[Rfam]
A member of the RNA family "msiK RNA" from Subtercola lobariae, 61 nucleotides long. Rfam 15.1 lists 1,374 matches to the family in 1,364 species. It is annotated as a cis-regulatory element. NCBI's taxonomy places the organism under Bacteria, Actinomycetota, Actinomycetes, Micrococcales, Subtercola.
RNA sequence: GCCCAUCUUCCAUCACAACGGAUCGUCCGGCACGUACCUGCCGGUGAAGGAGUAGUAGAAC
Numbered sequence: 001g002c003c004c005a006u007c008u009u010c011c012a013u014c015a016c017a018a019c020g021g022a023u024c025g026u027c028c029g030g031c032a033c034g035u036a037c038c039u040g041c042c043g044g045u046g047a048a049g050g051a052g053u054a055g056u057a058g059a060a061c
Base pairs, nucleotide, nucleotide: 009051010050011049013047014046015045027044028043029042030041031040032039